Flavo-1 RNA: a 74-nucleotide RNA from Polaribacter sp. SA4-12.
RNA sequence: GUUUAGCCCUGAUUGAAGUGACAUCCUUUUUUUAUUUUUCUUAAAAAAAGAUAUAACGGAAAGCAGGAAAUAGC
Numbered sequence: 001g002u003u004u005a006g007c008c009c010u011g012a013u014u015g016a017a018g019u020g021a022c023a024u025c026c027u028u029u030u031u032u033u034a035u036u037u038u039u040c041u042u043a044a045a046a047a048a049a050g051a052u053a054u055a056a057c058g059g060a061a062a063g064c065a066g067g068a069a070a071u072a073g074c
Base pairs, nucleotide, nucleotide: 009066010065011064013062014061018057019056023052024051025050029047030046031045032044033043034042
Dot-bracket structure: ........(((.((...((...(((...((((((.......))))))..)))...))...)).)))........
The family's RNA type in Rfam is small RNA.
NCBI's taxonomy places the organism under Bacteria, Bacteroidota, Flavobacteriales, Flavobacteriaceae, Polaribacter.
The family's consensus secondary structure is taken from published work.
It scores 75 bits against the family's covariance model.